[Rfam]
RNA: T-box leader
Organism: Anaerocolumna sedimenticola
RNA sequence: AGAAAACCGUUGAGAAAGAAAAGUAAGCUUUUAUACGACUUAACAGAGAGUCGCAGUUGGUGGAAUGCGAUAUGUAGUUUUAAGCUGAAUGGGCUUUUGAGGGCAACCCGAAUUAAUAGUAGGCGUUGACGGUAACCAUAACCGUUACUAGUAUGGCAUAUAUGUUAGUAUAUGAAAAAGUGGACUUUGUCAAAUUGAGUGGUACCGCGGAUUAUAUUCGUCUCAAGU
Numbered sequence: 001a002g003a004a005a006a007c008c009g010u011u012g013a014g015a016a017a018g019a020a021a022a023g024u025a026a027g028c029u030u031u032u033a034u035a036c037g038a039c040u041u042a043a044c045a046g047a048g049a050g051u052c053g054c055a056g057u058u059g060g061u062g063g064a065a066u067g068c069g070a071u072a073u074g075u076a077g078u079u080u081u082a083a084g085c086u087g088a089a090u091g092g093g094c095u096u097u098u099g100a101g102g103g104c105a106a107c108c109c110g111a112a113u114u115a116a117u118a119g120u121a122g123g124c125g126u127u128g129a130c131g132g133u134a135a136c137c138a139u140a141a142c143c144g145u146u147a148c149u150a151g152u153a154u155g156g157c158a159u160a161u162a163u164g165u166u167a168g169u170a171u172a173u174g175a176a177a178a179a180g181u182g183g184a185c186u187u188u189g190u191c192a193a194a195u196u197g198a199g200u201g202g203u204a205c206c207g208c209g210g211a212u213u214a215u216a217u218u219c220g221u222c223u224c225a226a227g228u
Stems, first nucleotide, its partner, number of pairs: 007102002015097004026086005039074001041072001050071006104128004108123002130144003183191003196225004207221005